The family of this 68-nucleotide sequence from Hemibagrus wyckioides is "miR-430 microRNA precursor family". The base pairs follow the family's consensus structure, which was predicted with RNAalifold. For this family Rfam cites "MicroRNAs regulate brain morphogenesis in zebrafish" (Giraldez et al., Science, 2005). Rfam 15.1 lists 24,817 matches to the family in 105 species. Lineage of the source: Eukaryota > Bilateria > Deuterostomia > Clupeocephala > Hemibagrus.
[Rfam]
RNA sequence: UAGAUUACUUCAAACAGAAGCACUGAUUUUUCUGUCAGCAAUAAGUGCUACUCUUUGGGGCAGUCUCA
Numbered sequence: 001u002a003g004a005u006u007a008c009u010u011c012a013a014a015c016a017g018a019a020g021c022a023c024u025g026a027u028u029u030u031u032c033u034g035u036c037a038g039c040a041a042u043a044a045g046u047g048c049u050a051c052u053c054u055u056u057g058g059g060g061c062a063g064u065c066u067c068a
Base pairs, nucleotide, nucleotide: 004064005063006062008060009059010058011057014055016052017051019049020048021047022046023045024044026042027041028040